RNA: Eukaryotic large subunit ribosomal RNA, nucleotides 2812 to 3383
Organism: Culex quinquefasciatus
RNA sequence: GACUCUAGUCUGGCAUUGUGAGGCGAUAUAAGAGGUGCAGAAUAGGUGGGAGCCGGGGUAACAUAUUAUCUCCCCGGCACCAAUGAGAUACCACCACUCUUACUGUUGCCUCACUUACAUGAUCAGGUGGAACAAGUGUUGGGGUUAUUGCAACCCUUUAACAUAAGGUUUCUUGUUCAGCGUUCAGUCAUGUCGUCAUACUGGCAAUAAUGCAGAAGACCGGGCCUGGGGUUCCGUUCGUUCGUUGCGUGUUUGGCGUGCGGUCCGAACCGGGCGUGUGUGCGUUCGCGCGUGCACGCGUCUGAAGUAGGGUCCCGCCCGCGUGCGGCACGACCCCGGUCGCCCAACGUUCACACAGUACGCUAAUGACAUCGAGACAUCUGGAUACUCCAAGUCAUGGACAGUGCCAGGUGCGGAGUUUGACUGGGGCGGUACAUCUCCAAAACAAUAACGGAGGUGUCCAAAGGUCAGCUCAGUGUGGACAGAAACCACACGCUGAGCAUAAGGACAAAAGCUGGCUUGAUCUCGAUGUUCAGUACAUAUUGAGACAGCGAAAGCUAGGCCUCACGAUC
Numbered sequence: 001g002a003c004u005c006u007a008g009u010c011u012g013g014c015a016u017u018g019u020g021a022g023g024c025g026a027u028a029u030a031a032g033a034g035g036u037g038c039a040g041a042a043u044a045g046g047u048g049g050g051a052g053c054c055g056g057g058g059u060a061a062c063a064u065a066u067u068a069u070c071u072c073c074c075c076g077g078c079a080c081c082a083a084u085g086a087g088a089u090a091c092c093a094c095c096a097c098u099c100u101u102a103c104u105g106u107u108g109c110c111u112c113a114c115u116u117a118c119a120u121g122a123u124c125a126g127g128u129g130g131a132a133c134a135a136g137u138g139u140u141g142g143g144g145u146u147a148u149u150g151c152a153a154c155c156c157u158u159u160a161a162c163a164u165a166a167g168g169u170u171u172c173u174u175g176u177u178c179a180g181c182g183u184u185c186a187g188u189c190a191u192g193u194c195g196u197c198a199u200a201c202u203g204g205c206a207a208u209a210a211u212g213c214a215g216a217a218g219a220c221c222g223g224g225c226c227u228g229g230g231g232u233u234c235c236g237u238u239c240g241u242u243c244g245u246u247g248c249g250u251g252u253u254u255g256g257c258g259u260g261c262g263g264u265c266c267g268a269a270c271c272g273g274g275c276g277u278g279u280g281u282g283c284g285u286u287c288g289c290g291c292g293u294g295c296a297c298g299c300g301u302c303u304g305a306a307g308u309a310g311g312g313u314c315c316c317g318c319c320c321g322c323g324u325g326c327g328g329c330a331c332g333a334c335c336c337c338g339g340u341c342g343c344c345c346a347a348c349g350u351u352c353a354c355a356c357a358g359u360a361c362g363c364u365a366a367u368g369a370c371a372u373c374g375a376g377a378c379a380u381c382u383g384g385a386u387a388c389u390c391c392a393a394g395u396c397a398u399g400g401a402c403a404g405u406g407c408c409a410g411g412u413g414c415g416g417a418g419u420u421u422g423a424c425u426g427g428g429g430c431g432g433u434a435c436a437u438c439u440c441c442a443a444a445a446c447a448a449u450a451a452c453g454g455a456g457g458u459g460u461c462c463a464a465a466g467g468u469c470a471g472c473u474c475a476g477u478g479u480g481g482a483c484a485g486a487a488a489c490c491a492c493a494c495g496c497u498g499a500g501c502a503u504a505a506g507g508a509c510a511a512a513a514g515c516u517g518g519c520u521u522g523a524u525c526u527c528g529a530u531g532u533u534c535a536g537u538a539c540a541u542a543u544u545g546a547g548a549c550a551g552c553g554a555a556a557g558c559u560a561g562g563c564c565u566c567a568c569g570a571u572c
Base pairs, nucleotide, nucleotide: 002419003418004417005416009411010410011409012408013407014406015405018114019113020112021111022110023109024108025107026106027105029102030101031100032099033098034097045095046094047093048092049091052078053077054076055075056074057073058072118399119398120397121396122395128392129391130390131389134158135157136156138154139153140152141151175386176385177384178383179382422435423433424432425431436458437457438456439455440454441453461562462561467519468518469517470516471515472514473499474498476494477493478492479491480490481489500509524548525547526546527545528544529543530542531541532540550559551558552557